[Rfam]
RNA: Cyano-1 RNA
Organism: Gloeothece verrucosa
RNA sequence: AAUUGUGUGAGGAGUGAGAAGAAAGACAGAGCCUUUGAAGUCGAAACAUGGCAAGACUUUCAAGGGCUUUUUCAU
Number, nucleotide and partner (000 for none) at each position: 001a000002a000003u000004u000005g000006u000007g000008u000009g000010a000011g000012g000013a000014g000015u074016g000017a000018g000019a000020a000021g000022a000023a000024a000025g073026a072027c000028a070029g069030a000031g000032c066033c065034u000035u000036u000037g061038a060039a059040g057041u056042c055043g000044a000045a000046a000047c000048a000049u000050g000051g000052c000053a000054a000055g042056a041057c040058u000059u039060u038061c037062a000063a000064g000065g033066g032067c000068u000069u029070u028071u000072u026073c025074a015075u000